[Rfam]
About this RNA:
The family of this 85-nucleotide RNA sequence from Blautia sp. An249 is "ZMP/ZTP riboswitch aptamer (pfl RNA motif)". It scores 60 bits against the family's covariance model. The base pairs follow the family's consensus structure, which is taken from published work.
RNA sequence: AAGGUAUCUGAUUACUGACGGAUAAUUAAGUGGAGAAACCACGUGGAAUCAGAUAUUAGAAACGCCGACCGUCUGGGCAGUAUUU
Numbered sequence: 001a002a003g004g005u006a007u008c009u010g011a012u013u014a015c016u017g018a019c020g021g022a023u024a025a026u027u028a029a030g031u032g033g034a035g036a037a038a039c040c041a042c043g044u045g046g047a048a049u050c051a052g053a054u055a056u057u058a059g060a061a062a063c064g065c066c067g068a069c070c071g072u073c074u075g076g077g078c079a080g081u082a083u084u085u
Stems, first nucleotide, its partner, number of pairs: 003057010015045001017073005030042004064078003
Dot-bracket structure: ..((((((((((..(.[[[[[........((((.....))))..)..))))))))))......(((..]]]]]..))).......